[Rfam]
RNA sequence: CGCGCCGGCCGGGCCGCCGCCCCGGGAGCGGUUCUUCGGAAUCGGGUCCCGGGGAGGAACGUCCGGACACCGCAGGGCACCGUGCUUCCUAACAGGAAGGCGCUGACGCUUCGGCGUCGGUGACGGCACGUGCAACAGAAAACAGACCAGCCGAUGGCUGACGGCUCGCGCCGCCGGCACAGGUGAUGGGUGAAACGGUGGGGUAAGAGCCCACCAGCGCGGGCGGCGACGUCCGCGGCUGGGCAAACCCCACGGGGUGCAAGGCCACGCAGCGUCCGCCCCGGCUCCGGCCGGGAAAGGGUGCCCGCCCGAGGACGCGGGUAGGCCGCUCGAGGCCGCCGGCGACGGCGGUCCCAGAUAGAUGGCGGCACAGCGCCGCGGCUCCGACGGCCGCGGCGCGGACAGAAUCCGGCGUACAGGCCGGCGCGCAGU
Dot-bracket structure: (((((((((((.((((((.((((((((...................))))))))....[[[.[[[[[((((...[[[[.((((((((((.....)))))((((((((((....))))))))).)((...((((.............((.(((..((.(.................).))..)))...)).......((((((.......)))))).(((((((((....)))))))).)...))..)))))))))))))...((((.....((((((.....................((((]]]]))))..)))))).....))))......((((((((....))))))))..........))))))......................................]]]]]]]].).))))))))))....
Numbered sequence: 001c002g003c004g005c006c007g008g009c010c011g012g013g014c015c016g017c018c019g020c021c022c023c024g025g026g027a028g029c030g031g032u033u034c035u036u037c038g039g040a041a042u043c044g045g046g047u048c049c050c051g052g053g054g055a056g057g058a059a060c061g062u063c064c065g066g067a068c069a070c071c072g073c074a075g076g077g078c079a080c081c082g083u084g085c086u087u088c089c090u091a092a093c094a095g096g097a098a099g100g101c102g103c104u105g106a107c108g109c110u111u112c113g114g115c116g117u118c119g120g121u122g123a124c125g126g127c128a129c130g131u132g133c134a135a136c137a138g139a140a141a142a143c144a145g146a147c148c149a150g151c152c153g154a155u156g157g158c159u160g161a162c163g164g165c166u167c168g169c170g171c172c173g174c175c176g177g178c179a180c181a182g183g184u185g186a187u188g189g190g191u192g193a194a195a196c197g198g199u200g201g202g203g204u205a206a207g208a209g210c211c212c213a214c215c216a217g218c219g220c221g222g223g224c225g226g227c228g229a230c231g232u233c234c235g236c237g238g239c240u241g242g243g244c245a246a247a248c249c250c251c252a253c254g255g256g257g258u259g260c261a262a263g264g265c266c267a268c269g270c271a272g273c274g275u276c277c278g279c280c281c282c283g284g285c286u287c288c289g290g291c292c293g294g295g296a297a298a299g300g301g302u303g304c305c306c307g308c309c310c311g312a313g314g315a316c317g318c319g320g321g322u323a324g325g326c327c328g329c330u331c332g333a334g335g336c337c338g339c340c341g342g343c344g345a346c347g348g349c350g351g352u353c354c355c356a357g358a359u360a361g362a363u364g365g366c367g368g369c370a371c372a373g374c375g376c377c378g379c380g381g382c383u384c385c386g387a388c389g390g391c392c393g394c395g396g397c398g399c400g401g402a403c404a405g406a407a408u409c410c411g412g413c414g415u416a417c418a419g420g421c422c423g424g425c426g427c428g429c430a431g432u
Stems, first nucleotide, its partner, number of pairs: 001428010011417001013369006020054008059415003063412005068259004075306004080255005085099005100124001101122009125250002130248002132244002147189002150184003155179002158176001197215006217239001218237008263327004272318006299310004334353008

Record summary
This 432-nucleotide sequence from Rubrivirga marina belongs to the Rfam family "Bacterial RNase P class A". Gene Ontology terms of the family: tRNA processing, dimeric ribonuclease P complex and ribonuclease P activity.